This 97-nucleotide RNA from Hasllibacter halocynthiae belongs to the Rfam family "Rhodo-rpoB RNA".
[Rfam]
RNA sequence: CGAUCGGGAGGCCCCCCCGUGGGACGGGGGGUCACGAAUGGAUCGGCCGGGCCCCCCUUCUCGCUUGCCCGAACCGCCAUUGCCCGGCGGCGGUUCC
Numbered sequence: 001c002g003a004u005c006g007g008g009a010g011g012c013c014c015c016c017c018c019g020u021g022g023g024a025c026g027g028g029g030g031g032u033c034a035c036g037a038a039u040g041g042a043u044c045g046g047c048c049g050g051g052c053c054c055c056c057c058u059u060c061u062c063g064c065u066u067g068c069c070c071g072a073a074c075c076g077c078c079a080u081u082g083c084c085c086g087g088c089g090g091c092g093g094u095u096c097c
Stems, first nucleotide, its partner, number of pairs: 001045005010033008071096008
The base pairs follow the family's consensus structure, which is taken from published work.